Rfam assigns this 394-nucleotide sequence from Isoptericola dokdonensis to the family "Bacterial RNase P class A".
Pairs were carried over by alignment from the consensus structure, which is taken from published work.
Nucleotides: 394
Base pairs, nucleotide, nucleotide: 001390002389003388004387005386006385007384008383009382010381011379012335013334014333015332016331017330018329020041021040023038024037025036026035027034028033046377047376048375050374051373052372053371054370055222056221057220058219063269064268067218068217069216070215071214072086073085074084075083076082087101088099089098090097091096102213103212107211108210109207110206111205124152125151126148127147128146129145130144131143132142133141134140160178161177162176163175164174165173180202181200182199183198184197185196186195187194188193226292227291228290229289235283236282237281238280239279240278262275263274264273265272266271299318300317301316302315303314304313305312306311
Number, partner (000 for none) and nucleotide at each position: 001390c002389g003388a004387g005386u006385c007384g008383g009382u010381c011379g012335g013334a014333c015332g016331g017330u018329c019000g020041c021040g022000u023038c024037a025036u026035c027034g028033c029000u030000u031000c032000g033028g034027c035026g036025g037024u038023g039000c040021c041020g042000a043000g044000g045000a046377a047376c048375g049000u050374c051373c052372g053371g054370g055222c056221u057220c058219c059000g060000c061000a062000g063269g064268g065000c066000g067218a068217g069216g070215u071214g072086g073085u074084g075083g076082c077000u078000a079000a080000c081000g082076g083075c084074c085073a086072c087101c088099c089098g090097g091096g092000g093000u094000g095000a096091c097090c098089c099088g100000c101087g102213g103212g104000a105000c106000a107211g108210u109207g110206c111205c112000a113000c114000a115000g116000a117000g118000a119000a120000c121000a122000g123000a124152c125151c126148g127147c128146c129145c130144g131143c132142a133141c134140g135000c136000c137000u138000g139000g140134c141133g142132u143131g144130c145129g146128g147127g148126u149000a150000a151125g152124g153000g154000u155000g156000a157000a158000a159000c160178g161177g162176u163175g164174g165173u166000g167000u168000a169000a170000g171000a172000g173165a174164c175163c176162a177161c178160c179000a180202g181200c182199g183198c184197g185196g186195c187194c188193g189000g190000u191000g192000a193188c194187g195186g196185u197184c198183g199182u200181g201000g202180c203000u204000u205111g206110g207109u208000a209000a210108a211107c212103c213102c214071c215070a216069c217068c218067u219058g220057g221056a222055g223000c224000a225000a226292g227291g228290u229289c230000a231000g232000a233000c234000a235283g236282a237281c238280u239279g240278u241000g242000a243000u244000c245000g246000a247000g248000g249000g250000c251000g252000g253000c254000c255000c256000g257000c258000c259000c260000g261000a262275u263274u264273c265272u266271c267000u268064c269063c270000g271266g272265a273264g274263a275262a276000g277000c278240g279239c280238a281237g282236u283235c284000g285000g286000g287000u288000a289229g290228a291227c292226c293000g294000c295000u296000g297000g298000a299318g300317c301316c302315c303314u304313g305312c306311g307000g308000c309000a310000a311306c312305g313304c314303a315302g316301g317300g318299c319000c320000u321000a322000g323000a324000u325000g326000g327000a328000u329018g330017a331016c332015c333014g334013u335012c336000a337000c338000c339000c340000g341000u342000g343000c344000c345000g346000g347000g348000g349000c350000a351000a352000c353000c354000g355000g356000g357000c358000a359000c360000g361000g362000g363000g364000a365000c366000a367000g368000a369000a370054c371053c372052c373051g374050g375048c376047g377046u378000a379011c380000a381010g382009a383008c384007c385006g386005a387004c388003u389002c390001g391000u392000c393000c394000g